[Rfam]
RNA sequence: CAAGAGUUUCAGGCCAUAGCAGAAAUGCUGAUGACUUGGCCUGUCAGAUACCCAUGAAUCUGCGGAUUGUGUU
Numbered sequence: 001c002a003a004g005a006g007u008u009u010c011a012g013g014c015c016a017u018a019g020c021a022g023a024a025a026u027g028c029u030g031a032u033g034a035c036u037u038g039g040c041c042u043g044u045c046a047g048a049u050a051c052c053c054a055u056g057a058a059u060c061u062g063c064g065g066a067u068u069g070u071g072u073u
Stems, first nucleotide, its partner, number of pairs: 012041004018073004023068002025037001027035001045062005051056001

This 73-nucleotide sequence from Alligator mississippiensis belongs to the Rfam family "Mammalian CPEB3 ribozyme".
The match comes from Rfam's covariance-model search (37 bits).